Rfam assigns this 54-nucleotide RNA sequence from Oncorhynchus kisutch to the family "UnaL2 LINE 3' element".
RNA sequence: UACACGCAUGAUUGUAAGUCGCUUUGGAUAAAACCGUCUGCUAAAUGGCAUUUA
Numbered sequence: 001u002a003c004a005c006g007c008a009u010g011a012u013u014g015u016a017a018g019u020c021g022c023u024u025u026g027g028a029u030a031a032a033a034c035c036g037u038c039u040g041c042u043a044a045a046u047g048g049c050a051u052u053u054a
Stems, first nucleotide, its partner, number of pairs: 013043001014041003020036002023033003